[Rfam]
RNA sequence: AAUUUAUAAAGAAGAAGGGAGAGUCAGGCUCUGUGAACUUCUGGCAACUUCCGGCAUCCGGAUAAGUGCCUAACCUGGUCUAAACAAUAUUUAGAAACUAUAAAUU
Numbered sequence: 001a002a003u004u005u006a007u008a009a010a011g012a013a014g015a016a017g018g019g020a021g022a023g024u025c026a027g028g029c030u031c032u033g034u035g036a037a038c039u040u041c042u043g044g045c046a047a048c049u050u051c052c053g054g055c056a057u058c059c060g061g062a063u064a065a066g067u068g069c070c071u072a073a074c075c076u077g078g079u080c081u082a083a084a085c086a087a088u089a090u091u092u093a094g095a096a097a098c099u100a101u102a103a104a105u106u
Stems, first nucleotide, its partner, number of pairs: 001106008013042005021031003025078001027076002043070004048066002050062004079095006

This 106-nucleotide RNA sequence from Terrimonas sp. belongs to the Rfam family "SAM riboswitch aptamer (S box leader)". Rfam 15.1 lists 9,625 matches to the family in 4,158 species. For this family Rfam cites "The S box regulon: a new global transcription termination control system for methionine and cysteine biosynthesis genes in gram-positive bacteria" (Grundy and Henkin, Mol Microbiol, 1998).